[Rfam]
RNA sequence: UCUCGAUAAAGGCAAAGCCGGUGAAAGCCGUCGACGCAAAGCUACAGGGGCUAUGGACGCGAGAGCGUUACGCCAGCCAGCUGCCGGA
Numbered sequence: 001u002c003u004c005g006a007u008a009a010a011g012g013c014a015a016a017g018c019c020g021g022u023g024a025a026a027g028c029c030g031u032c033g034a035c036g037c038a039a040a041g042c043u044a045c046a047g048g049g050g051c052u053a054u055g056g057a058c059g060c061g062a063g064a065g066c067g068u069u070a071c072g073c074c075a076g077c078c079a080g081c082u083g084c085c086g087g088a
Base pairs, nucleotide, nucleotide: 012037013036017032019030020029021028022027040082041081042080043079047078048077049074050073051072057068058067059066060065
Shown here is an 88-nucleotide sequence from Cohnella lubricantis, a member of the family "c-di-GMP-I riboswitch aptamer". The family's consensus secondary structure is taken from published work. Gene Ontology term of the family: cyclic-di-GMP binding. A search with the family's covariance model found it, with a score of 70 bits.